[Rfam]
RNA sequence: UUCUUAUUAAAUAAUGAUUGUCACCUGUCAUGUUCUGAUUAGAUGUCAACUUCAUGGAAGAUAAAAUACAUUGUUGUUUUCAUUGACCAAUCAGAACAUAACACGUGACAAUUAUCAUUC
Numbered sequence: 001u002u003c004u005u006a007u008u009a010a011a012u013a014a015u016g017a018u019u020g021u022c023a024c025c026u027g028u029c030a031u032g033u034u035c036u037g038a039u040u041a042g043a044u045g046u047c048a049a050c051u052u053c054a055u056g057g058a059a060g061a062u063a064a065a066a067u068a069c070a071u072u073g074u075u076g077u078u079u080u081c082a083u084u085g086a087c088c089a090a091u092c093a094g095a096a097c098a099u100a101a102c103a104c105g106u107g108a109c110a111a112u113u114a115u116c117a118u119u120c
Base pairs, nucleotide, nucleotide: 020109021108022107023106026103030099031098033096034095035094036093038091039090040089

Description:
Shown here is a 120-nucleotide RNA from Glycine max, a member of the family "MIR1520 microRNA precursor family". The family's consensus secondary structure was predicted with RNAalifold. The match comes from Rfam's covariance-model search (120 bits).